[Rfam]
The record is a 111-nucleotide RNA sequence, which matches "Hairpin ribozyme 1 from viruses-like metatranscriptomes" in Rfam. Its family is annotated with RNA nuclease activity in the Gene Ontology. The sequence is in the family's curated seed alignment.

RNA sequence: UCUUUGUCCUCGCAUCCGUGUGCGUAUAGCGCAAUCCCAAGCGGGUAGGAGCGAGAGAAGAGAUGGGAGGGAAACAUGCUGGAGUAGCGACCCAGUAGCACAUUAACUCCC
Numbered sequence: 001u002c003u004u005u006g007u008c009c010u011c012g013c014a015u016c017c018g019u020g021u022g023c024g025u026a027u028a029g030c031g032c033a034a035u036c037c038c039a040a041g042c043g044g045g046u047a048g049g050a051g052c053g054a055g056a057g058a059a060g061a062g063a064u065g066g067g068a069g070g071g072a073a074a075c076a077u078g079c080u081g082g083a084g085u086a087g088c089g090a091c092c093c094a095g096u097a098g099c100a101c102a103u104u105a106a107c108u109c110c111c
Base pairs, nucleotide, nucleotide: 001063002062003061004060009055010054011053012052013051014046015045016044017043018042019041065111066110067109068108069107077097078096079095080094081093082092